[Rfam]
RNA: c-di-AMP riboswitch aptamer (ydaO/yuaA leader)
Organism: Streptomyces gardneri
RNA sequence: GUCCGGAAUCCGCACUCAUCCCAUGCGUGGCAGGAGCGGGGGACCCAGGAAGUACGCCGGUCCCGCGACAACAGGACGGCUCGGGGUGAAGCCGCGUGAGAACGCGGCCGGGCAUCUCCAGUCCGAACCCGACAGCUCACCUCGUAGGCGCCGGAGAGGAAUU
Dot-bracket structure: .(((............................)))((((((....(....................................)(((.....((((........))))..((((.......))))...))).........))))))..................